RNA sequence: UUCCACCCAGUGAAAAGUCGCCGACUGUGGCGGCCUGCCUGAAGAGUCAUCUUCAGGCUAGCUGGGUGGUUUUAC
Numbered sequence: 001u002u003c004c005a006c007c008c009a010g011u012g013a014a015a016a017g018u019c020g021c022c023g024a025c026u027g028u029g030g031c032g033g034c035c036u037g038c039c040u041g042a043a044g045a046g047u048c049a050u051c052u053u054c055a056g057g058c059u060a061g062c063u064g065g066g067u068g069g070u071u072u073u074a075c
Stems, first nucleotide, its partner, number of pairs: 003069009017034006037058008